[Rfam]
RNA sequence: GACUUAAAGAUAUAAUCCAUCUACAGAUAGAGUGUACUCUUCUAGACUUUUGUCUACUCCCCUCAACUAAACGAAAUUUUUGCCAUAUGUUUAUGGCUAAUUGAAAUUUCAGUCGGUUGUUAACAUACUUGCACAAGUGUCGUGCAUGUCGCCAGUCCCUCCUUUCAGUUCCGUCUGUUAGGUAUACUAGGUGGCUGCCUUUGGUUCAGUUCCGUCUGGCCAUUGUGUGGAUAGUACGUUCCGUCGUGCUUGAAACCGAUAACUAGCAGGUAUGUCGUCCAACCUUGUGACAUUGGCCUUUGCCAGUGAUUCGGAGAUUU
Dot-bracket structure: ......((((.....((.(((....))).))......)))).(((((....)))))..................((((((.((((((....)))))).....))))))........(((....((((((((....(((((((........(((.......(((..(((......)))..))).......))).........(((((.((......)))))))....((....((((((......))))))....))))))).))..)))))))).....)))......................................

This 320-nucleotide RNA sequence from Alphacoronavirus pusilli belongs to the Rfam family "Alphacoronavirus 5'UTR". The pairing is the family consensus, mapped onto this sequence. The literature on the family includes a 2016 paper in Adv Virus Res by Madhugiri et al., "Coronavirus cis-Acting RNA Elements". The family is grouped with related families in Rfam's "Coronavirus 5' UTR". The first 150 to 200 nucleotides within the 5' UTR of alphacoronaviruses are highly structured and shown to be conserved on the structural level among alphacoronaviruses.